[Rfam]
RNA sequence: CCCCCGGAUUGGAAGUUUUUCCGUUAUGGUCCAUUCGCUGCACAUCGAAGGAGAGCGACGUCAGAUGUGCAAACGGUGC
Dot-bracket structure: .(.(((...((((................)))).....((((((((.................))))))))..))).).

This 79-nucleotide sequence belongs to the Rfam family "CyVA-1 RNA". About the family: Cyanobacteria, Acidobacteria (1 example), Verrucomicrobia (1 example). The family's consensus secondary structure is taken from published work.